RNA sequence: CCUCCCGCUUUACCUCCCUGAGCGGGGCCUGGAGACGGUAACGUUGACAGGUUUCCCACCCUCGGCCCCAGGCCGGGGGUUUUUUUU
Numbered sequence: 001c002c003u004c005c006c007g008c009u010u011u012a013c014c015u016c017c018c019u020g021a022g023c024g025g026g027g028c029c030u031g032g033a034g035a036c037g038g039u040a041a042c043g044u045u046g047a048c049a050g051g052u053u054u055c056c057c058a059c060c061c062u063c064g065g066c067c068c069c070a071g072g073c074c075g076g077g078g079g080u081u082u083u084u085u086u087u
Stems, first nucleotide, its partner, number of pairs: 004026006028051004034045003059079008

Record summary: This 87-nucleotide RNA from Limnohabitans sp. Rim28 belongs to the Rfam family "Burkholderia RNA 7 (anti-hemB)". The organism belongs to Limnohabitans, within Bacteria. For this family Rfam cites "Identification of 22 candidate structured RNAs in bacteria using the CMfinder comparative genomics pipeline" (Weinberg et al., Nucleic Acids Res, 2007). Rfam describes the family as follows. This RNA motif was identified by computational search in b-proteobacteria Burkholderia. It is annotated as a small RNA. The family has 26 seed sequences and 479 matches in Rfam 15.1. Pairs were carried over by alignment from the consensus structure, which is taken from published work.